Rfam assigns this 94-nucleotide RNA from Treponema vincentii to the family "TD-2 RNA". A reference for the family is Weinberg et al. (2007), "Identification of 22 candidate structured RNAs in bacteria using the CMfinder comparative genomics pipeline", Nucleic Acids Res. Lineage of the source: Bacteria > Spirochaetota > Treponematales > Treponemataceae > Treponema vincentii. By type it is a small RNA.
RNA sequence: AGCGGCAUGGAUGCCGCUCGUAUUACACAGAAGCGAUGUUUCGUGCUGGGCACGAAACGCGCCAAAAGUGUACAAGGAUGUACACUUUUGGCGU
Number, nucleotide and partner (000 for none) at each position: 001a018002g017003c016004g015005g014006c013007a000008u000009g000010g000011a000012u000013g006014c005015c004016g003017c002018u001019c000020g000021u000022a000023u000024u000025a000026c000027a000028c000029a000030g000031a000032a000033g000034c061035g060036a000037u000038g058039u057040u056041u055042c054043g053044u052045g051046c000047u000048g000049g000050g000051c045052a044053c043054g042055a041056a040057a039058c038059g000060c035061g034062c000063c090064a089065a088066a087067a086068g085069u084070g083071u082072a081073c080074a000075a000076g000077g000078a000079u000080g073081u072082a071083c070084a069085c068086u067087u066088u065089u064090g063091g000092c000093g000094u000